[Rfam]
Nucleotides: 061
Stems, first nucleotide, its partner, number of pairs: 002060003014047009028036003
Number, partner (000 for none) and nucleotide at each position: 001000c002060u003059u004058g005000c006000u007000u008000u009000a010000u011000g012000a013000g014047g015046a016045c017044a018043g019042g020041u021040g022039c023000a024000g025000a026000a027000a028036c029035u030034g031000c032000a033000c034030u035029a036028g037000u038000g039022g040021u041020g042019c043018c044017u045016g046015u047014c048000u049000g050000a051000u052000g053000u054000c055000a056000u057000g058004c059003a060002a061000u
Shown here is a 61-nucleotide sequence from Synaphobranchus kaupii, a member of the family "Selenocysteine insertion sequence 1". The organism belongs to Synaphobranchus, within Eukaryota. Rfam's curators write: The incorporation of selenocysteine into a protein sequence is directed by an in-frame UGA codon (usually a stop codon) within the coding region of the mRNA. Selenoprotein mRNAs contain a conserved secondary structure in the 3' UTR that is required for the distinction of UGA stop from UGA selenocysteine. The selenocysteine insertion sequence (SECIS) is around 60 nt in length and adopts a hairpin structure which is sufficiently well-defined and conserved to act as a computational screen for selenoprotein genes. A search with the family's covariance model found it, with a score of 39 bits.